Nucleotides: 093
Base pairs, nucleotide, nucleotide: 016066017065018064019063020062021054028044029043030042031041032040033039067086068085069084070083071082072081073080074079
Number, partner (000 for none) and nucleotide at each position: 001000c002000c003000c004000a005000g006000a007000g008000g009000u010000a011000u012000u013000g014000a015000u016066u017065g018064g019063u020062g021054a022000a023000u024000c025000a026000u027000c028044a029043a030042c031041g032040u033039g034000c035000u036000c037000u038000g039033u040032a041031u042030g043029u044028u045000g046000a047000u048000a049000c050000c051000g052000a053000u054021u055000a056000a057000a058000u059000u060000u061000g062020c063019a064018c065017c066016a067086a068085c069084c070083u071082a072081c073080g074079c075000g076000g077000a078000u079074g080073c081072g082071u083070a084069g085068g086067u087000u088000u089000u090000u091000u092000u093000u